[Rfam]
Nucleotides: 059
Stems, first nucleotide, its partner, number of pairs: 003057005009051005017043002021039006028033001
Number, partner (000 for none) and nucleotide at each position: 001000u002000c003057c004056g005055g006054u007053c008000c009051u010050c011049g012048g013047u014000a015000g016000u017043g018042g019000u020000u021039c022038c023037c024036g025035g026034a027000a028033c029000a030000c031000g032000u033028g034026u035025c036024c037023g038022g039021g040000u041000u042018c043017c044000u045000c046000g047013a048012u049011c050010g051009a052000a053007g054006a055005c056004c057003g058000c059000c
The record is a 59-nucleotide RNA from Cellulomonas hominis, which matches "Actino-pnp RNA" in Rfam. Taxonomically the source falls in Cellulomonas (Bacteria, Bacillati, Actinomycetota, Actinomycetes). It scores 53 bits against the family's covariance model. It is annotated as a cis-regulatory element.